[Rfam]
RNA sequence: GUUAUUUGAGGUGGACAAUUUCGUGGCAUCCACACGCCGAUGGUAUGACAGGAAGUAAUUCCGAGAGAUGCAGGAGUACGCCACGCCUGCCAAAUAAC
Numbered sequence: 001g002u003u004a005u006u007u008g009a010g011g012u013g014g015a016c017a018a019u020u021u022c023g024u025g026g027c028a029u030c031c032a033c034a035c036g037c038c039g040a041u042g043g044u045a046u047g048a049c050a051g052g053a054a055g056u057a058a059u060u061c062c063g064a065g066a067g068a069u070g071c072a073g074g075a076g077u078a079c080g081c082c083a084c085g086c087c088u089g090c091c092a093a094a095u096a097a098c
Base pairs, nucleotide, nucleotide: 001098002097003096004095005094006093007092008091011033012032013031014030015029025081035065036044037043038042070090071089072088073087074086
Dot-bracket structure: ((((((((..(((((.........[...))))).((((...)))....................)....(((((......]....)))))))))))))